[Rfam]
RNA sequence: ACCAGUUCUCGGGGCGGGGUGAAACUCCCCACCGGCGGUGAUGAUGCUGCGAGGUCAUGCUCGCGACAUCGAGCCCGCGAGCGCCUGCCCAGGCAGGGACAGCAGAUUCCGGUGCGAAUCCGGAGCCGACGGUCACAGUCCGGAUGUGAGAGAACAGGC
Numbered sequence: 001a002c003c004a005g006u007u008c009u010c011g012g013g014g015c016g017g018g019g020u021g022a023a024a025c026u027c028c029c030c031a032c033c034g035g036c037g038g039u040g041a042u043g044a045u046g047c048u049g050c051g052a053g054g055u056c057a058u059g060c061u062c063g064c065g066a067c068a069u070c071g072a073g074c075c076c077g078c079g080a081g082c083g084c085c086u087g088c089c090c091a092g093g094c095a096g097g098g099a100c101a102g103c104a105g106a107u108u109c110c111g112g113u114g115c116g117a118a119u120c121c122g123g124a125g126c127c128g129a130c131g132g133u134c135a136c137a138g139u140c141c142g143g144a145u146g147u148g149a150g151a152g153a154a155c156a157g158g159c
Base pairs, nucleotide, nucleotide: 003157005155006154007153008152009151010150017029018028019027031139032138033128034127035078036077037076038075073126074125081103082102108124109123110122111121112120130142131141132140